[Rfam]
Shown here is a 175-nucleotide RNA from Shigella flexneri, a member of the family "sok antitoxin (CssrC)". The family has 91 seed sequences and 305 matches in Rfam 15.1. Rfam's curators write: Also identified in Shigella as CssrC. Gene Ontology term of the family: mRNA binding. Pairs were carried over by alignment from the consensus structure, which is taken from published work. Lineage of the source: Bacteria > Pseudomonadati > Enterobacteriaceae > Shigella flexneri > Shigella flexneri 5.
RNA sequence: GGGUGCUUGAGGCUGUCUGCCUCGGGCAUGCCACUGUAAGGCAGACAGAGAAAAGCCCCAGUUAACAUUACGCGUCCUGCAAGACGCUUAACAUUAAUCUGAGGCCCAAUCUAUGUCUCACAAAUGUAGGUUAGCCUCUUACGUGCCGAAAGGCAAGGAGAAGCAGGCUAUGAAG
Numbered sequence: 001g002g003g004u005g006c007u008u009g010a011g012g013c014u015g016u017c018u019g020c021c022u023c024g025g026g027c028a029u030g031c032c033a034c035u036g037u038a039a040g041g042c043a044g045a046c047a048g049a050g051a052a053a054a055g056c057c058c059c060a061g062u063u064a065a066c067a068u069u070a071c072g073c074g075u076c077c078u079g080c081a082a083g084a085c086g087c088u089u090a091a092c093a094u095u096a097a098u099c100u101g102a103g104g105c106c107c108a109a110u111c112u113a114u115g116u117c118u119c120a121c122a123a124a125u126g127u128a129g130g131u132u133a134g135c136c137u138c139u140u141a142c143g144u145g146c147c148g149a150a151a152g153g154c155a156a157g158g159a160g161a162a163g164c165a166g167g168c169u170a171u172g173a174a175g
Stems, first nucleotide, its partner, number of pairs: 001059003005056004013048010026035001060100002101138005108132009142167001144165001146163001